[Rfam]
RNA sequence: UGCCUUUAUGUGUUGCCCAUUCAUUGUCUCCAGAGUGAAUGAGGUGUCAACCAAGGCAUACAGUAACCUUGUUGGCUGUCUUUUGUUUGGAAGGAGUCUCCACUGAUUCCUUUCAAUAACUAACUGCAAGAACACACUA
Numbered sequence: 001u002g003c004c005u006u007u008a009u010g011u012g013u014u015g016c017c018c019a020u021u022c023a024u025u026g027u028c029u030c031c032a033g034a035g036u037g038a039a040u041g042a043g044g045u046g047u048c049a050a051c052c053a054a055g056g057c058a059u060a061c062a063g064u065a066a067c068c069u070u071g072u073u074g075g076c077u078g079u080c081u082u083u084u085g086u087u088u089g090g091a092a093g094g095a096g097u098c099u100c101c102a103c104u105g106a107u108u109c110c111u112u113u114c115a116a117u118a119a120c121u122a123a124c125u126g127c128a129a130g131a132a133c134a135c136a137c138u139a
Stems, first nucleotide, its partner, number of pairs: 002057005011049002014046004018041008069132002073128001075127002078124002085120003090114002094109005

Shown here is a 139-nucleotide RNA from Salvelinus namaycush, a member of the family "Small nucleolar RNA SNORA13". The family has 50 seed sequences and 1,034 matches in Rfam 15.1. Rfam describes the family as follows. ACA13 is a member of the H/ACA class of snoRNA that guide the sites of modification of uridines to pseudouridines. The match comes from Rfam's covariance-model search (66 bits). Its Rfam clan is "SNORA13 clan".